This 47-nucleotide sequence from Corallincola holothuriorum belongs to the Rfam family "Guanidine-II riboswitch aptamer (mini-ykkC)". A search with the family's covariance model found it, with a score of 35 bits. Rfam links the family to the GO term regulation of gene expression. NCBI's taxonomy places the organism under Bacteria, Pseudomonadota, Gammaproteobacteria, Alteromonadales, Corallincola. About the family: Simpler in structure and has fewer highly conserved nucleotide positions than the ykkC-yxkD leader.

RNA sequence: CCUUUGGGACGACCCAGAGGUGAAUGAAUGAUGAUGGGACGACCCAU
Dot-bracket structure: ((((((((....)))))))).............(((((....)))))